RNA sequence: GUUGCUUGAGGCAGGGUACCAUCCUGUGUUCGCUGCGUAUUCCCAGUUGAGUGAACACAGCUGGUGGUAUCUCAGCUUCAUUUUACCU
Numbered sequence: 001g002u003u004g005c006u007u008g009a010g011g012c013a014g015g016g017u018a019c020c021a022u023c024c025u026g027u028g029u030u031c032g033c034u035g036c037g038u039a040u041u042c043c044c045a046g047u048u049g050a051g052u053g054a055a056c057a058c059a060g061c062u063g064g065u066g067g068u069a070u071c072u073c074a075g076c077u078u079c080a081u082u083u084u085a086c087c088u
Base pairs, nucleotide, nucleotide: 008079009078010077011076014073015071016070018068019067021065022064023063024060025059026058028056030054031053
Rfam assigns this 88-nucleotide RNA from Nesidiocoris tenuis to the family "mir-317 microRNA precursor family".
For this family Rfam cites "Systematic discovery and characterization of fly microRNAs using 12 Drosophila genomes" (Stark et al., Genome Res, 2007).
Lineage of the source: Eukaryota > Protostomia > Arthropoda > Dicondylia > Nesidiocoris.
Rfam links the family to the GO terms RISC complex and miRNA-mediated post-transcriptional gene silencing.
The match comes from Rfam's covariance-model search (61 bits).